The record is a 56-nucleotide sequence from Nonomuraea sp. C10, which matches "L17-Actino-Proteobacteria ribosomal protein leader" in Rfam. A search with the family's covariance model found it, with a score of 53 bits.
[Rfam]
RNA sequence: CGGCAGGCCGCUGGUGGCCUUCCGCCCGACCCCGGUACCUGGCACGGCCGGGGCGG
Numbered sequence: 001c002g003g004c005a006g007g008c009c010g011c012u013g014g015u016g017g018c019c020u021u022c023c024g025c026c027c028g029a030c031c032c033c034g035g036u037a038c039c040u041g042g043c044a045c046g047g048c049c050g051g052g053g054c055g056g
Base pairs, nucleotide, nucleotide: 001024002023003022005020006019007018008017009016026056027055028054030053031052032051033050034049035048036047